RNA: c-di-AMP riboswitch aptamer (ydaO/yuaA leader)
RNA sequence: AAACCACACACGCUUCUACCUUGUAGAAGACUUGCAGACAGGGACGGGGAACCCACCUGCCCACCGCGGGCACCGGAGGUAACUCCUUGGGGUGAAGCCGAAGUUCUCCUUCGGCAGGGCACAUCCUCCGCCCUAACCCGACAGCUAACCUCGACGGCGACAGAUGAGAGGACAU
Numbered sequence: 001a002a003a004c005c006a007c008a009c010a011c012g013c014u015u016c017u018a019c020c021u022u023g024u025a026g027a028a029g030a031c032u033u034g035c036a037g038a039c040a041g042g043g044a045c046g047g048g049g050a051a052c053c054c055a056c057c058u059g060c061c062c063a064c065c066g067c068g069g070g071c072a073c074c075g076g077a078g079g080u081a082a083c084u085c086c087u088u089g090g091g092g093u094g095a096a097g098c099c100g101a102a103g104u105u106c107u108c109c110u111u112c113g114g115c116a117g118g119g120c121a122c123a124u125c126c127u128c129c130g131c132c133c134u135a136a137c138c139c140g141a142c143a144g145c146u147a148a149c150c151u152c153g154a155c156g157g158c159g160a161c162a163g164a165u166g167a168g169a170g171g172a173c174a175u
Stems, first nucleotide, its partner, number of pairs: 011159004019042002045153005054089002090139003098114004117133004